Nucleotides: 160
Base pairs, nucleotide, nucleotide: 011145012144013143014142018040019039020038021037022036023035024034041140042139043138044137045136046135051075076125077124078123084100085099086098087097103119104118105117106116
Number, partner (000 for none) and nucleotide at each position: 001000g002000g003000c004000g005000g006000u007000g008000a009000c010000c011145u012144g013143c014142c015000g016000a017000g018040u019039c020038c021037g022036u023035g024034c025000a026000g027000c028000c029000a030000g031000g032000a033000g034024g035023c036022a037021c038020g039019g040018a041140g042139c043138c044137g045136g046135g047000g048000a049000c050000c051075c052000a053000g054000c055000g056000a057000u058000c059000c060000g061000c062000g063000u064000u065000u066000u067000c068000c069000g070000g071000a072000u073000c074000a075051g076125g077124g078123g079000u080000g081000a082000a083000u084100c085099g086098g087097c088000g089000c090000g091000a092000c093000c094000c095000g096000c097087g098086c099085c100084g101000u102000a103119g104118g105117g106116c107000g108000a109000c110000u111000u112000c113000c114000a115000g116106g117105c118104c119103c120000g121000a122000a123078u124077c125076c126000g127000u128000c129000a130000g131000c132000u133000a134000a135046c136045c137044c138043g139042g140041u141000a142014g143013g144012c145011g146000u147000u148000c149000g150000u151000g152000g153000a154000a155000g156000c157000u158000c159000c160000a

The record is a 160-nucleotide RNA from Nonomuraea glycinis, which matches "c-di-AMP riboswitch aptamer (ydaO/yuaA leader)" in Rfam.
Taxonomically the source falls in Nonomuraea (Bacteria, Actinomycetota, Actinomycetes, Streptosporangiales).
The match comes from Rfam's covariance-model search (78 bits).
On this family, see Barrick et al., Proc Natl Acad Sci U S A 2004: "New RNA motifs suggest an expanded scope for riboswitches in bacterial genetic control".
About the family: This family represents a conserved RNA structure found upstream of the ydaO and yuaA genes in Bacillus subtilis and related genes in other bacteria. The ydaO/yuaA element is thought to act as a genetic 'off' switch for the ydaO and yuaA genes in its native state. It is believed that the element may be triggered during osmotic shock leading to activation of ydaO, a predicted amino acid transporter gene, and members of the yuaA-yubG operon which code for KtrA and KtrB K+ transporters.